The family of this 85-nucleotide RNA is "RAGATH-18 RNA".
[Rfam]
RNA sequence: UCUGUGGAUCGUCACACCAAAUGAAAGUAGUCAGUAAUGAUGAUUAUUCAUUUUUACGACAAAAUCAGACGGGUUGAAACAGAAA
Numbered sequence: 001u002c003u004g005u006g007g008a009u010c011g012u013c014a015c016a017c018c019a020a021a022u023g024a025a026a027g028u029a030g031u032c033a034g035u036a037a038u039g040a041u042g043a044u045u046a047u048u049c050a051u052u053u054u055u056a057c058g059a060c061a062a063a064a065u066c067a068g069a070c071g072g073g074u075u076g077a078a079a080c081a082g083a084a085a
Base pairs, nucleotide, nucleotide: 001083002082003081004080005079009072010071011070012069013068022067023066024065030060031059032058034057035056036055037054

The family's RNA type in Rfam is small RNA. It is one of the family's seed sequences.